Rfam assigns this 157-nucleotide RNA sequence from Oceanispirochaeta sp. M1 to the family "Molybdenum/Tungsten riboswitch aptamer (Moco RNA motif)".
Lineage of the source: Bacteria > Pseudomonadati > Spirochaetia > Spirochaetaceae > Oceanispirochaeta.
The family's consensus secondary structure is taken from published work.
[Rfam]
RNA sequence: UAUGAAUUAAAUCUUCGAACUGUUGUUUUCUAAAGGAUUUUCUCAUGUAGAAAUUAUUCCAUGAACUUCAGUCGGUGUACGGAUAUAAGUCUGUACCAAGGGUCUCUCGGGAAACUGACAGGCCUCCCUGUUGGAAAGGAGAUACACCCUAUUCGGA
Numbered sequence: 001u002a003u004g005a006a007u008u009a010a011a012u013c014u015u016c017g018a019a020c021u022g023u024u025g026u027u028u029u030c031u032a033a034a035g036g037a038u039u040u041u042c043u044c045a046u047g048u049a050g051a052a053a054u055u056a057u058u059c060c061a062u063g064a065a066c067u068u069c070a071g072u073c074g075g076u077g078u079a080c081g082g083a084u085a086u087a088a089g090u091c092u093g094u095a096c097c098a099a100g101g102g103u104c105u106c107u108c109g110g111g112a113a114a115c116u117g118a119c120a121g122g123c124c125u126c127c128c129u130g131u132u133g134g135a136a137a138g139g140a141g142a143u144a145c146a147c148c149c150u151a152u153u154c155g156g157a
Stems, first nucleotide, its partner, number of pairs: 003151002011143006019072004025066001028065003035059003074097005100125006107118004126134002